Shown here is a 52-nucleotide RNA from Variovorax sp. PBS-H4, a member of the family "nhaA-I RNA". From the family's description: Acidobacteria, Alphaproteobacteria, Betaproteobacteria and Gammaproteobacteria, Verrucomicrobia, cand. division NC10. A search with the family's covariance model found it, with a score of 46 bits. It is annotated as a riboswitch. Lineage of the source: Bacteria > Pseudomonadati > Betaproteobacteria > Burkholderiales > Variovorax.
RNA sequence: GGGUGUCCGCAUCGCGUUGUCGGACAGGUUCAGCGCUGGUCGGGCCGCCGCG
Numbered sequence: 001g002g003g004u005g006u007c008c009g010c011a012u013c014g015c016g017u018u019g020u021c022g023g024a025c026a027g028g029u030u031c032a033g034c035g036c037u038g039g040u041c042g043g044g045c046c047g048c049c050g051c052g
Stems, first nucleotide, its partner, number of pairs: 005025005034052003038049003